Rfam assigns this 68-nucleotide sequence from Tissierella creatinophila to the family "RAGATH-18 RNA". A search with the family's covariance model found it, with a score of 69 bits. Actinobacteria, Firmicutes, Fusobacteria, Thermotogae (1 example).

[Rfam]
Nucleotides: 068
Stems, first nucleotide, its partner, number of pairs: 001066005009055005022050003030043003
Number, partner (000 for none) and nucleotide at each position: 001066c002065c003064u004063u005062u006000g007000g008000a009055g010054u011053g012052u013051u014000a015000u016000a017000c018000c019000a020000a021000a022050u023049g024048u025000u026000a027000g028000u029000a030043g031042g032041c033000u034000a035000u036000a037000g038000a039000g040000u041032g042031c043030c044000a045000a046000g047000g048024a049023c050022a051013g052012a053011c054010a055009c056000g057000c058000u059000g060000a061000a062005a063004a064003a065002g066001g067000a068000a